[Rfam]
RNA sequence: CGCAGUUGCUAGAGGUGCCCCGCCUGUUGGUGCGGUGGGGCUGAGAAACACUCUUGGUACCUGAUCUGGGUCAUGCCAGCGUAGGGAAGCACCGCCCUGAUGGG
Numbered sequence: 001c002g003c004a005g006u007u008g009c010u011a012g013a014g015g016u017g018c019c020c021c022g023c024c025u026g027u028u029g030g031u032g033c034g035g036u037g038g039g040g041c042u043g044a045g046a047a048a049c050a051c052u053c054u055u056g057g058u059a060c061c062u063g064a065u066c067u068g069g070g071u072c073a074u075g076c077c078a079g080c081g082u083a084g085g086g087a088a089g090c091a092c093c094g095c096c097c098u099g100a101u102g103g104g
Base pairs, nucleotide, nucleotide: 007091008090009089010088011054012053013052014051016048017041018040019039020038021037022036023035024034060085061084062083063082066079067078068077069076
Dot-bracket structure: ......((((((((.(((((((((.........))))))))......)..)))).....((((..((((......))))..))))..)))).............